Shown here is an 80-nucleotide sequence from Salmo trutta, a member of the family "mir-17 microRNA precursor family". The family's consensus secondary structure was predicted with RNAalifold.
[Rfam]
RNA sequence: UCAGCAGUGUUAAAGUGCUUAUAGUGCAGGUAGUAUAUUAUCUACAUCUACUGCAAUGUGAGCACUUCCAGUAUUGCUGU
Numbered sequence: 001u002c003a004g005c006a007g008u009g010u011u012a013a014a015g016u017g018c019u020u021a022u023a024g025u026g027c028a029g030g031u032a033g034u035a036u037a038u039u040a041u042c043u044a045c046a047u048c049u050a051c052u053g054c055a056a057u058g059u060g061a062g063c064a065c066u067u068c069c070a071g072u073a074u075u076g077c078u079g080u
Stems, first nucleotide, its partner, number of pairs: 004077004009072003013067011025055003029052005

About this RNA: Gene Ontology terms of the family: RISC complex and miRNA-mediated post-transcriptional gene silencing. Lineage of the source: Eukaryota > Teleostomi > Clupeocephala > Euteleosteomorpha > Salmo. Rfam describes the family as follows. This family represents the microRNA (miRNA) precursor mir-17, family, which includes mir-20, mir-91, and mir-103. miRNAs are transcribed as ~70nt precursors (modelled here) and subsequently processed by the Dicer enzyme to give a ~22nt product. In this case the mature sequence comes from the 3' arm of the precursor. The extents of the hairpin precursors are not generally known and are estimated based on hairpin prediction.